Rfam assigns this 467-nucleotide part of an RNA to the family "Bacterial small subunit ribosomal RNA".
RNA sequence: UGACGGGAGUCUACACAAGCGGUGGAGCAUGUGGUUUAAUUCGAUAAUACGCGCAGAACCUUACCAACUCUUGCUAAUUUUUAUAUAAAAUAUUAUAUAAAAAACAGGCGUUGCAUGGCUGUCGUCAGCUCGUGUUGUGAAAUGUUUGGUUAAAUCCUUUAACGAGCGCAACCCUUAUUGUUAGUUGCUAAUUUAUUAAAAAAAAUAAAAGUACUCUAACAAAAAAAUUAAUGAUAGGUUAAUGGAAGGUGGGGAUGACGUCAAGUCUUCAUGGCCCUUAUGAGUUGGGCUACACACGUGCUACAAUGAUAAUUACAAUGAGAGGCAAUAAUAAUAAAAGUUGGAGCAAAUCUUUAAAAAUUAUCUUAGUUCGGAUUAAGGGCUGAAACUCGCCCUUAUGAAGUUGGAAUCGCUAGUAAUCGCAGAACAGCAUGCUGCGGUGAAUAUGUUACUGGACUUUGUACACA
Numbered sequence: 001u002g003a004c005g006g007g008a009g010u011c012u013a014c015a016c017a018a019g020c021g022g023u024g025g026a027g028c029a030u031g032u033g034g035u036u037u038a039a040u041u042c043g044a045u046a047a048u049a050c051g052c053g054c055a056g057a058a059c060c061u062u063a064c065c066a067a068c069u070c071u072u073g074c075u076a077a078u079u080u081u082u083a084u085a086u087a088a089a090a091u092a093u094u095a096u097a098u099a100a101a102a103a104a105c106a107g108g109c110g111u112u113g114c115a116u117g118g119c120u121g122u123c124g125u126c127a128g129c130u131c132g133u134g135u136u137g138u139g140a141a142a143u144g145u146u147u148g149g150u151u152a153a154a155u156c157c158u159u160u161a162a163c164g165a166g167c168g169c170a171a172c173c174c175u176u177a178u179u180g181u182u183a184g185u186u187g188c189u190a191a192u193u194u195a196u197u198a199a200a201a202a203a204a205a206u207a208a209a210a211g212u213a214c215u216c217u218a219a220c221a222a223a224a225a226a227a228u229u230a231a232u233g234a235u236a237g238g239u240u241a242a243u244g245g246a247a248g249g250u251g252g253g254g255a256u257g258a259c260g261u262c263a264a265g266u267c268u269u270c271a272u273g274g275c276c277c278u279u280a281u282g283a284g285u286u287g288g289g290c291u292a293c294a295c296a297c298g299u300g301c302u303a304c305a306a307u308g309a310u311a312a313u314u315a316c317a318a319u320g321a322g323a324g325g326c327a328a329u330a331a332u333a334a335u336a337a338a339a340g341u342u343g344g345a346g347c348a349a350a351u352c353u354u355u356a357a358a359a360a361u362u363a364u365c366u367u368a369g370u371u372c373g374g375a376u377u378a379a380g381g382g383c384u385g386a387a388a389c390u391c392g393c394c395c396u397u398a399u400g401a402a403g404u405u406g407g408a409a410u411c412g413c414u415a416g417u418a419a420u421c422g423c424a425g426a427a428c429a430g431c432a433u434g435c436u437g438c439g440g441u442g443a444a445u446a447u448g449u450u451a452c453u454g455g456a457c458u459u460u461g462u463a464c465a466c467a
Base pairs, nucleotide, nucleotide: 001465002464003462004461005460007459008458009457010456011455012454013453015449016448019413020412021411022410023409024304026302027301028300029299030298031297032296033295034293035292040055042053043052064288065287066286067285068284069283070282078103079101080100081099085096086095087094088093107277108276110275111274112273113272116271117270118266119265120264121262123260124259128167129166130165131164132163133162134143135142136141148157149156173254174253175252176251178222179221180220181219182218183217184216188211189210192209193208194207195206196205197204227243228242229241230240231239232238308365309364310363311362312361313360314359320354321353322352325347326346330342331341332340372403377398378397379396380395381394382393383392419441420440421439422438423437424436425435

Rfam links the family to the GO terms ribosome and structural constituent of ribosome.